[Rfam]
RNA sequence: CCCAGACAAAGGCAAACCAUUUGAAAAAAUGGGACGCAAAGCUACCGCCUACGUUCAUCAUGAACAAGGCAGUGGGGCUGCCGGG
Numbered sequence: 001c002c003c004a005g006a007c008a009a010a011g012g013c014a015a016a017c018c019a020u021u022u023g024a025a026a027a028a029a030u031g032g033g034a035c036g037c038a039a040a041g042c043u044a045c046c047g048c049c050u051a052c053g054u055u056c057a058u059c060a061u062g063a064a065c066a067a068g069g070c071a072g073u074g075g076g077g078c079u080g081c082c083g084g085g
Stems, first nucleotide, its partner, number of pairs: 012037002017032006040079004045075002047070003054064004
This 85-nucleotide RNA from Desulfoplanes formicivorans belongs to the Rfam family "c-di-GMP-I riboswitch aptamer". Lineage of the source: Bacteria > Pseudomonadati > Thermodesulfobacteriota > Desulfoplanaceae > Desulfoplanes. Rfam's curators write: GEMM was predicted in a large-scale screen for bacterial structured RNA regulatory elements. Genes associated with GEMM are involved in a diverse array of functions, including chemotaxis regulation, signal transduction, secretion and chitin.